[Rfam]
RNA sequence: UGUUGUCCUUGGACAACCAGCUAAUGCUUCAGCACUCUGUGAGAAGCGCCUUUGGGUGAGUGCCAGCCAAAGUUUAAGCGGUCUGUGAGAAACGCCUUCGGGUGACUGCAAAUAACCUCUUAGCCUGAAAGAGGCAGCCCAUGUGGCGGUAACUC
Numbered sequence: 001u002g003u004u005g006u007c008c009u010u011g012g013a014c015a016a017c018c019a020g021c022u023a024a025u026g027c028u029u030c031a032g033c034a035c036u037c038u039g040u041g042a043g044a045a046g047c048g049c050c051u052u053u054g055g056g057u058g059a060g061u062g063c064c065a066g067c068c069a070a071a072g073u074u075u076a077a078g079c080g081g082u083c084u085g086u087g088a089g090a091a092a093c094g095c096c097u098u099c100g101g102g103u104g105a106c107u108g109c110a111a112a113u114a115a116c117c118u119c120u121u122a123g124c125c126u127g128a129a130a131g132a133g134g135c136a137g138c139c140c141a142u143g144u145g146g147c148g149g150u151a152a153c154u155c
Stems, first nucleotide, its partner, number of pairs: 002017006026047005032063006048057003072093004078109006094103003116134003120152002123150003137147003
STAXI RNA: a 155-nucleotide sequence from Serratia proteamaculans. Rfam's curators put it in the seed alignment. The family's consensus secondary structure is taken from published work.